This 110-nucleotide RNA from Monodelphis domestica belongs to the Rfam family "Small nucleolar RNA U6-53/MBII-28". The family's RNA type in Rfam is C/D-box small nucleolar RNA. Taxonomically the source falls in Monodelphis (Eukaryota, Deuterostomia, Craniata, Sarcopterygii).

[Rfam]
RNA sequence: CCCCCAUGAUGAGUUGCCAUGCUAAUACUGAGUCACCAGGCAGGGUAGUAUUACUCUGAGCUGGGUGCCAGUGAGUGGAAGAACACUUCUCACAUGGAGACCUGAGGGGC
Numbered sequence: 001c002c003c004c005c006a007u008g009a010u011g012a013g014u015u016g017c018c019a020u021g022c023u024a025a026u027a028c029u030g031a032g033u034c035a036c037c038a039g040g041c042a043g044g045g046u047a048g049u050a051u052u053a054c055u056c057u058g059a060g061c062u063g064g065g066u067g068c069c070a071g072u073g074a075g076u077g078g079a080a081g082a083a084c085a086c087u088u089c090u091c092a093c094a095u096g097g098a099g100a101c102c103u104g105a106g107g108g109g110c
Base pairs, nucleotide, nucleotide: 001109002108003107004106041058042057043056044055045054